RNA: TPP riboswitch aptamer (THI element)
Organism: Methylomonas lenta
RNA sequence: CUUAAAGGCUAGGGGUGCUUUCAUCAUGAACUACAUUGCCGUGAAAGCUGAGAAAAACCCUUUGAACCUGACCCGGUUAAUGCCGGCGUAGGAAAGCCCGAUCUUACCUGC
Numbered sequence: 001c002u003u004a005a006a007g008g009c010u011a012g013g014g015g016u017g018c019u020u021u022c023a024u025c026a027u028g029a030a031c032u033a034c035a036u037u038g039c040c041g042u043g044a045a046a047g048c049u050g051a052g053a054a055a056a057a058c059c060c061u062u063u064g065a066a067c068c069u070g071a072c073c074c075g076g077u078u079a080a081u082g083c084c085g086g087c088g089u090a091g092g093a094a095a096g097c098c099c100g101a102u103c104u105u106a107c108c109u110g111c
Stems, first nucleotide, its partner, number of pairs: 007098004011061004016055001017048008067092004073086004